RNA sequence: GUGCUGUGAUGACUCCCAUCUUGGUUUCGCUUGUUGCUGAAUUCCAAUGAAGACAUCUCUCUUGGCUGUCUGAGCAU
Number, nucleotide and partner (000 for none) at each position: 001g077002u076003g075004c074005u000006g000007u000008g000009a000010u000011g000012a000013c000014u000015c000016c000017c000018a000019u000020c000021u000022u000023g000024g000025u000026u000027u000028c000029g000030c000031u000032u000033g000034u000035u000036g000037c000038u000039g000040a000041a000042u000043u000044c000045c000046a000047a000048u000049g000050a000051a000052g000053a000054c000055a000056u000057c000058u000059c000060u000061c000062u000063u000064g000065g000066c000067u000068g000069u000070c000071u000072g000073a000074g004075c003076a002077u001

This 77-nucleotide RNA from Sphenodon punctatus belongs to the Rfam family "Small nucleolar RNA SNORD53/SNORD92".
The pairing is the family consensus, mapped onto this sequence.
Rfam 15.1 lists 2,250 matches to the family in 671 species.
For this family Rfam cites "RNomics: an experimental approach that identifies 201 candidates for novel, small, non-messenger RNAs in mouse" (Huttenhofer et al., EMBO J, 2001).